[Rfam]
RNA sequence: GAGUGAUAAAGGCAAAACCAUUGAAAAAUGGUGACGCAAAGCUACGAGUCUAAGUCGUUAUGAUAGGAUAGUCGGGUUACCUUG
Dot-bracket structure: ...........((...((((((....))))))...))..((((.((((((....(((...)))...)))..)))))))......
RNA: c-di-GMP-I riboswitch aptamer
Organism: Natranaerovirga pectinivora